[Rfam]
U2 spliceosomal RNA: a 191-nucleotide RNA from Pan troglodytes. Its family is annotated with pre-mRNA branch point binding, U2 snRNP and mRNA branch site recognition in the Gene Ontology. The family's consensus secondary structure is taken from published work.
RNA sequence: GUUGCUUCAUAGCCUUUUGGCUAAGUUCAAGCGUAGUAUCUGUCCUUAUCAGUUUAAUAUCUGAUACAUCCUCUAUCUGAGGACAAUACAUUAAACGGAUUUUUGGAGCAGGGAGAUGGAAUAAGGACUAGUUUCCUCCACUCCAUGCAUCAACCUGGUAUUGCAGUACCUCCAGAAAUGGUGCACCCCUC
Numbered sequence: 001g002u003u004g005c006u007u008c009a010u011a012g013c014c015u016u017u018u019g020g021c022u023a024a025g026u027u028c029a030a031g032c033g034u035a036g037u038a039u040c041u042g043u044c045c046u047u048a049u050c051a052g053u054u055u056a057a058u059a060u061c062u063g064a065u066a067c068a069u070c071c072u073c074u075a076u077c078u079g080a081g082g083a084c085a086a087u088a089c090a091u092u093a094a095a096c097g098g099a100u101u102u103u104u105g106g107a108g109c110a111g112g113g114a115g116a117u118g119g120a121a122u123a124a125g126g127a128c129u130a131g132u133u134u135c136c137u138c139c140a141c142u143c144c145a146u147g148c149a150u151c152a153a154c155c156u157g158g159u160a161u162u163g164c165a166g167u168a169c170c171u172c173c174a175g176a177a178a179u180g181g182u183g184c185a186c187c188c189c190u191c
Base pairs, nucleotide, nucleotide: 008025011022012021013020014019047066048065049064050063051062052061069083070082071081072080073079112144113143114142115141118138119137125134126133127132147184148183149182150181151180152179155175156174157173158172

Rfam describes the family as follows. U2 is a small nuclear RNA (snRNA) component of the spliceosome (involved in pre-mRNA splicing). Lineage of the source: Eukaryota > Teleostomi > Tetrapoda > Haplorrhini > Pan.